[Rfam]
This 53-nucleotide sequence from Arabis alpina belongs to the Rfam family "Plastid-ccsA-ndhD-1 3UTR RNA".
Lineage of the source: Eukaryota > Viridiplantae > Streptophyta > Embryophyta > Arabis.
From the family's description: Plastid-ccsA-ndhD-1 is a non-coding RNA (ncRNA) recognised in plastids. It was found in the three prime untranslated region (3UTR) of ccsA and ndhD genes, its 3UTR location suggests a role in transcript maturation.
Clan: Plastid-ccsA_ndhD 3UTR RNA clan.
By type it is a cis-regulatory element.
Rfam 15.1 lists 1,322 matches to the family in 557 species.

RNA sequence: AAGCCAUCGAGAACCCUUUGAAUCACUACUUUGAUUCAAAAGGUUCUUACAAA
Dot-bracket structure: ........(((((((.(((((((((......))))))))).))))))).....